The family of this 57-nucleotide sequence from Nelumbo nucifera is "Plastid-psbA-3 3UTR RNA".

[Rfam]
RNA sequence: AAAGGAACAAUACCAACCUCUUGAUAGAACAAGAAAUUGGAUAUUGUUCCUUCAACU
Numbered sequence: 001a002a003a004g005g006a007a008c009a010a011u012a013c014c015a016a017c018c019u020c021u022u023g024a025u026a027g028a029a030c031a032a033g034a035a036a037u038u039g040g041a042u043a044u045u046g047u048u049c050c051u052u053c054a055a056c057u
Stems, first nucleotide, its partner, number of pairs: 002052011013040002019034005
Plastid psbA-3 is a non-coding RNA (ncRNA) present in plastids.